The family of this 66-nucleotide RNA sequence from Leptomonas pyrrhocoris is "Trypanosomatid snoRNA TB9Cs1H1".
[Rfam]
RNA sequence: CGCGAAGUCAAGGAAAUCAGUGCACGCGUGACACCUGUGCUGCUCUGGUGCCGAAGCUACGCAAGA
Numbered sequence: 001c002g003c004g005a006a007g008u009c010a011a012g013g014a015a016a017u018c019a020g021u022g023c024a025c026g027c028g029u030g031a032c033a034c035c036u037g038u039g040c041u042g043c044u045c046u047g048g049u050g051c052c053g054a055a056g057c058u059a060c061g062c063a064a065g066a
Stems, first nucleotide, its partner, number of pairs: 002062003006058002016049005

Lineage of the source: Eukaryota > Metakinetoplastina > Trypanosomatida > Trypanosomatidae > Leptomonas. The family's consensus secondary structure was predicted with WAR. Rfam links the family to the GO terms nucleolus and RNA processing.